Group I catalytic intron: a 355-nucleotide sequence from Rutstroemia sp. NJR-2017a BBW. Taxonomically the source falls in Rutstroemia (Eukaryota, Dikarya, saccharomyceta, sordariomyceta). Rfam describes the family as follows. Group I catalytic introns are large self-splicing ribozymes. They catalyse their own excision from mRNA, tRNA and rRNA precursors in a wide range of organisms. The core secondary structure consists of 9 paired regions (P1-P9). These fold to essentially two domains - the P4-P6 domain (formed from the stacking of P5, P4, P6 and P6a helices) and the P3-P9 domain (formed from the P8, P3, P7 and P9 helices). The secondary structure mark-up for this family represents only this conserved core. Group I catalytic introns often have long ORFs inserted in loop regions. The window size for this search is chosen to minimise search time and catch the small examples. A larger window size will find more matches. On this family, see Cech, Annu Rev Biochem 1990: "Self-splicing of group I introns".
RNA sequence: CCAGGGGGGUCUAAGGAGCCCCUUUAAGGUCAAAAAAAGUCUAGGUGAACCUUAGGCUAGUCAAUCUAUAUAAUUUAAGCAACGUAAUAUAGUGGGGCAAGAUUUUCAAAUUGACGGGAAUACCCUAAAGCAAUUUCAACCAAGCAGAUGUGGUAACACAUCUGUAGCACAGGUAAUGACUCGUGGUACGGUAAAAUCGAAAUUGAUAACUGAAAGGAAAUGGGCAAUCCGCAGCCAACCACCAAUAUCUAUAACAAGAGACUGUAGAGAAGGGUGGGCAGUUCAACGACUAAAAGUUAAUCGGCUAUAAUAUUUAUGGCUUAAGAUAUAGUCUGACCCGGUAUGAAAGUACUGA
Number, nucleotide and partner (000 for none) at each position: 001c000002c000003a000004g000005g023006g022007g021008g020009g019010u018011c000012u000013a000014a000015g000016g000017a000018g010019c009020c008021c007022c006023u005024u000025u000026a000027a000028g000029g000030u000031c000032a000033a000034a000035a000036a000037a000038a000039g000040u000041c000042u000043a000044g000045g000046u000047g000048a000049a000050c000051c000052u000053u000054a000055g000056g000057c000058u000059a000060g000061u000062c000063a000064a000065u000066c000067u000068a000069u000070a000071u000072a000073a000074u000075u000076u000077a000078a000079g000080c000081a000082a000083c000084g000085u000086a000087a000088u000089a000090u000091a000092g000093u000094g000095g000096g000097g000098c000099a000100a000101g302102a301103u300104u299105u000106u000107c296108a000109a000110a000111u000112u233113g232114a000115c231116g230117g229118g228119a000120a000121u000122a000123c224124c223125c222126u000127a000128a000129a000130g000131c000132a000133a000134u000135u000136u000137c000138a000139a000140c000141c000142a000143a000144g000145c000146a000147g000148a000149u000150g000151u000152g000153g000154u000155a000156a000157c000158a000159c000160a000161u000162c000163u000164g000165u000166a000167g000168c000169a000170c000171a000172g000173g000174u000175a000176a000177u000178g000179a000180c000181u000182c000183g000184u000185g000186g000187u000188a000189c000190g000191g000192u000193a000194a000195a000196a000197u000198c000199g000200a000201a000202a000203u000204u000205g000206a000207u000208a000209a000210c000211u000212g000213a000214a000215a000216g000217g000218a000219a000220a000221u000222g125223g124224g123225c000226a000227a000228u118229c117230c116231g115232c113233a112234g282235c281236c000237a000238a000239c277240c276241a275242c274243c000244a000245a000246u270247a000248u268249c267250u266251a265252u264253a263254a000255c000256a000257a000258g000259a000260g000261a000262c000263u253264g252265u251266a250267g249268a248269g000270a246271a000272g000273g000274g242275u241276g240277g239278g000279c000280a000281g235282u234283u000284c000285a000286a334287c000288g333289a332290c331291u330292a329293a000294a000295a000296g107297u000298u000299a104300a103301u102302c101303g000304g320305c319306u318307a317308u316309a315310a314311u000312a000313u000314u310315u309316a308317u307318g306319g305320c304321u000322u000323a000324a000325g000326a000327u000328a000329u292330a291331g290332u289333c288334u286335g000336a000337c000338c000339c000340g353341g352342u351343a350344u349345g000346a000347a000348a000349g344350u343351a342352c341353u340354g000355a000